Betaproteobacteria toxic small RNA: a 63-nucleotide RNA from Noviherbaspirillum denitrificans. Rfam describes the family as follows. Overexpression in amino aid rich medium attenuates growth, suggesting role in repressing amino acid intake and metabolism. The match comes from Rfam's covariance-model search (54 bits). For this family Rfam cites "A vast collection of microbial genes that are toxic to bacteria" (Kimelman et al., Genome Res, 2012).
RNA sequence: UGUCUCCUCCAACUCUUCUUGAAUUGGAUUUACCCGCAAACCGCAAGGUCUGCGGGUUUUUUU
Numbered sequence: 001u002g003u004c005u006c007c008u009c010c011a012a013c014u015c016u017u018c019u020u021g022a023a024u025u026g027g028a029u030u031u032a033c034c035c036g037c038a039a040a041c042c043g044c045a046a047g048g049u050c051u052g053c054g055g056g057u058u059u060u061u062u063u
Stems, first nucleotide, its partner, number of pairs: 008028005013021001033056006040049001